Description: A member of the RNA family "MicX Vibrio cholerae sRNA" from Vibrio sp. 10N.286.49.B3, 193 nucleotides long. The base pairs follow the family's consensus structure, which was predicted with CMfinder. The match comes from Rfam's covariance-model search (125 bits).
RNA sequence: AUAAAAAAGAUAAGAGCGGCUGUUGUGGUCGCUUAUUCAUCUGUGUUUUUACUGUGUUUUGGUUUGGCCGCUGACAAGCAGUAAAGCACAUCUAUCGUUACGCAUAGCUGGCAGUUAGUUCGGUAAUCCUUACACCAUUUUUGCUAAUUGUUUUUGUAACUCUAACCCAAGUCACUGACUUGGGUUUUUUUUC
Numbered sequence: 001a002u003a004a005a006a007a008a009g010a011u012a013a014g015a016g017c018g019g020c021u022g023u024u025g026u027g028g029u030c031g032c033u034u035a036u037u038c039a040u041c042u043g044u045g046u047u048u049u050u051a052c053u054g055u056g057u058u059u060u061g062g063u064u065u066g067g068c069c070g071c072u073g074a075c076a077a078g079c080a081g082u083a084a085a086g087c088a089c090a091u092c093u094a095u096c097g098u099u100a101c102g103c104a105u106a107g108c109u110g111g112c113a114g115u116u117a118g119u120u121c122g123g124u125a126a127u128c129c130u131u132a133c134a135c136c137a138u139u140u141u142u143g144c145u146a147a148u149u150g151u152u153u154u155u156g157u158a159a160c161u162c163u164a165a166c167c168c169a170a171g172u173c174a175c176u177g178a179c180u181u182g183g184g185u186u187u188u189u190u191u192u193c
Stems, first nucleotide, its partner, number of pairs: 014034008044088001047086009059074005097160006110152009164186009